[Rfam]
RNA sequence: CACCAGCCUAGUUUUAGCGGGCGAAAAGCCGGCCCCUUCACCGGCCUGACUGGUGCCCCAACAAUUGAAGG
Numbered sequence: 001c002a003c004c005a006g007c008c009u010a011g012u013u014u015u016a017g018c019g020g021g022c023g024a025a026a027a028g029c030c031g032g033c034c035c036c037u038u039c040a041c042c043g044g045c046c047u048g049a050c051u052g053g054u055g056c057c058c059c060a061a062c063a064a065u066u067g068a069a070g071g
Stems, first nucleotide, its partner, number of pairs: 001055006008048001011022004028045005035071006
RNA: int-alpA RNA